[Rfam]
RNA sequence: GGAGUCGGCCAGGCAGUCGCGUCAUCGGAUCGCAAGAUCGGGUGCCGAGGAAAGUCCGGGCUCCACAGGGCACGGUGCCAGGUAACGCCUGGGCGGCGCGAGCCGACGGAAAGUGCAACAGAGAGCAGACCGCCGAACGGCGUCGCAAGACGUGCGUGGUAAGGGUGAAACGGUGCGGUAAGAGCGCACCGCGAGUCCGGCAACGGACCGGCACGGCAAACCCCACCGGGAGCAAGGCCAAAUAGGGAGACUAUGCCGCGGCCCGCGGUGUCUCCGGGUAGGCUGCUUGAGCGUAGCGGUGACGCUGCGCCUAGAGGAAUGACUGCUCACGACAGAACCCGGCUUAUGGCCGGCUCCGCCG
Numbered sequence: 001g002g003a004g005u006c007g008g009c010c011a012g013g014c015a016g017u018c019g020c021g022u023c024a025u026c027g028g029a030u031c032g033c034a035a036g037a038u039c040g041g042g043u044g045c046c047g048a049g050g051a052a053a054g055u056c057c058g059g060g061c062u063c064c065a066c067a068g069g070g071c072a073c074g075g076u077g078c079c080a081g082g083u084a085a086c087g088c089c090u091g092g093g094c095g096g097c098g099c100g101a102g103c104c105g106a107c108g109g110a111a112a113g114u115g116c117a118a119c120a121g122a123g124a125g126c127a128g129a130c131c132g133c134c135g136a137a138c139g140g141c142g143u144c145g146c147a148a149g150a151c152g153u154g155c156g157u158g159g160u161a162a163g164g165g166u167g168a169a170a171c172g173g174u175g176c177g178g179u180a181a182g183a184g185c186g187c188a189c190c191g192c193g194a195g196u197c198c199g200g201c202a203a204c205g206g207a208c209c210g211g212c213a214c215g216g217c218a219a220a221c222c223c224c225a226c227c228g229g230g231a232g233c234a235a236g237g238c239c240a241a242a243u244a245g246g247g248a249g250a251c252u253a254u255g256c257c258g259c260g261g262c263c264c265g266c267g268g269u270g271u272c273u274c275c276g277g278g279u280a281g282g283c284u285g286c287u288u289g290a291g292c293g294u295a296g297c298g299g300u301g302a303c304g305c306u307g308c309g310c311c312u313a314g315a316g317g318a319a320u321g322a323c324u325g326c327u328c329a330c331g332a333c334a335g336a337a338c339c340c341g342g343c344u345u346a347u348g349g350c351c352g353g354c355u356c357c358g359c360c361g
Stems, first nucleotide, its partner, number of pairs: 001357011012327007020047002023044004028039003052345003056342005061232004068264004073228005078092005093107001094105004108223002113221002115217002130164002132160003138154002172190006191212001192210002195208005236284004246275006255269005291310008
Shown here is a 361-nucleotide RNA sequence from Lysobacter sp. Root96, a member of the family "Bacterial RNase P class A". It scores 308 bits against the family's covariance model. It is annotated as a ribozyme. Gene Ontology terms of the family: tRNA processing, dimeric ribonuclease P complex and ribonuclease P activity.